The record is an 85-nucleotide sequence from Leptolyngbyaceae cyanobacterium JSC-12, which matches "tRNA" in Rfam. The family's RNA type in Rfam is transfer RNA. Taxonomically the source falls in Leptolyngbyaceae (Bacteria, Cyanobacteriota, Cyanophyceae, Leptolyngbyales).
[Rfam]
RNA sequence: GGAGAGGUGGCAGAGCGGUUGAAUGCGCUUGACUCGAAAUCAAGUUUGGGGCAACCCAACGGGGGUUCGAAUCCCCCCCUCUCCG
Numbered sequence: 001g002g003a004g005a006g007g008u009g010g011c012a013g014a015g016c017g018g019u020u021g022a023a024u025g026c027g028c029u030u031g032a033c034u035c036g037a038a039a040u041c042a043a044g045u046u047u048g049g050g051g052c053a054a055c056c057c058a059a060c061g062g063g064g065g066u067u068c069g070a071a072u073c074c075c076c077c078c079c080u081c082u083c084c085g
Base pairs, nucleotide, nucleotide: 001084002083003082004081005080006079007078010026011025012024028044029043030042031041032040061077062076063075064074065073
Dot-bracket structure: (((((((..(((...........))).(((((.......)))))................(((((.......)))))))))))).
The family's consensus secondary structure is taken from published work.